RNA: Mammalian CPEB3 ribozyme
RNA sequence: UAUUGCAAGUGGAAGGCCAGAGCAGAAGCGCUCAUGGAGCAGCCUGUCAGACUUCAAUGAAUCUGCAAAUUCUGCU
Numbered sequence: 001u002a003u004u005g006c007a008a009g010u011g012g013a014a015g016g017c018c019a020g021a022g023c024a025g026a027a028g029c030g031c032u033c034a035u036g037g038a039g040c041a042g043c044c045u046g047u048c049a050g051a052c053u054u055c056a057a058u059g060a061a062u063c064u065g066c067a068a069a070u071u072c073u074g075c076u
Stems, first nucleotide, its partner, number of pairs: 015044003021076007028040002048065004053060002